[Rfam]
A member of the RNA family "PreQ1 (pre queuosine) riboswitch aptamer" from Ureibacillus terrenus, 44 nucleotides long. The match comes from Rfam's covariance-model search (48 bits). About the family: This family is a bacterial riboswitch that binds to the metabolite preQ1, an intermediate in the biosynthesis of the modified nucleoside queuosine from GTP. One example of this riboswitch is located in the leader of the Bacillus subtilis ykvJKLM (queCDEF) operon which encodes four genes necessary for queuosine production. PreQ1 binding to the riboswitch aptamer is thought to induce premature transcription termination within the leader to down-regulate expression of these genes. The family has 43 seed sequences and 873 matches in Rfam 15.1. On this family, see Reader et al., J Biol Chem 2004: "Identification of four genes necessary for biosynthesis of the modified nucleoside queuosine". The source organism's lineage runs through Bacteria, Bacilli, Caryophanales, Caryophanaceae and Ureibacillus.
RNA sequence: CACACCGUGGUUCGCGAAAUCCCACGAUAAAAAACUAAGGAGUG
Numbered sequence: 001c002a003c004a005c006c007g008u009g010g011u012u013c014g015c016g017a018a019a020u021c022c023c024a025c026g027a028u029a030a031a032a033a034a035c036u037a038a039g040g041a042g043u044g
Stems, first nucleotide, its partner, number of pairs: 006026005016036001